Shown here is a 59-nucleotide sequence from Panagrellus redivivus, a member of the family "mir-7957 microRNA precursor family".
It is one of the family's seed sequences.
The organism belongs to Panagrellus, within Eukaryota.
Pairs were carried over by alignment from the consensus structure, which was predicted with RNAalifold.
Gene Ontology terms of the family: RISC complex and miRNA-mediated post-transcriptional gene silencing.
RNA sequence: AAUUUGUCCUUGGUUAAAUUGCUGUUGGUUUUUAUCUGCAAAUUUGCUGAGGACAAAAU
Numbered sequence: 001a002a003u004u005u006g007u008c009c010u011u012g013g014u015u016a017a018a019u020u021g022c023u024g025u026u027g028g029u030u031u032u033u034a035u036c037u038g039c040a041a042a043u044u045u046g047c048u049g050a051g052g053a054c055a056a057a058a059u
Base pairs, nucleotide, nucleotide: 003057004056005055006054007053008052009051010050011049012048013047014046019041020040021039022038